Shown here is a 36-nucleotide RNA sequence from Microtus ochrogaster, a member of the family "Iron response element I". Rfam links the family to the GO term response to iron ion. Pairs were carried over by alignment from the consensus structure, which is taken from published work. The literature on the family includes a 1987 paper in Science by Hentze et al., "Identification of the iron-responsive element for the translational regulation of human ferritin mRNA". It scores 35 bits against the family's covariance model.
RNA sequence: CGGUUUCCUGCUUCAACGUUGCUUGAACAGAACCCG
Number, nucleotide and partner (000 for none) at each position: 001c036002g035003g034004u000005u032006u031007c030008c000009u000010g028011c000012u027013u026014c025015a024016a023017c021018g000019u000020u000021g017022c000023u016024u015025g014026a013027a012028c010029a000030g007031a006032a005033c000034c003035c002036g001